[Rfam]
RNA: FMN riboswitch aptamer (RFN element)
Organism: Vagococcus coleopterorum
RNA sequence: GUUCGUCUUCAGGGCAGGGUGUAAUUCCCGACCGGUGGUAAAGUCCACGACCUGUUGCUUCGGCAAUGGCUGAAUUGGUGAAAUUCCAAUACCGACAGUAAAGUCUGGAUAAGAGAAGAUAGAG
Numbered sequence: 001g002u003u004c005g006u007c008u009u010c011a012g013g014g015c016a017g018g019g020u021g022u023a024a025u026u027c028c029c030g031a032c033c034g035g036u037g038g039u040a041a042a043g044u045c046c047a048c049g050a051c052c053u054g055u056u057g058c059u060u061c062g063g064c065a066a067u068g069g070c071u072g073a074a075u076u077g078g079u080g081a082a083a084u085u086c087c088a089a090u091a092c093c094g095a096c097a098g099u100a101a102a103g104u105c106u107g108g109a110u111a112a113g114a115g116a117a118g119a120u121a122g123a124g
Base pairs, nucleotide, nucleotide: 003122005120006119007118008117009116010115017029018028019027031104032103033094034093035048036047037046038045043092044091052069053068074090075089076088077087078086096107097106098105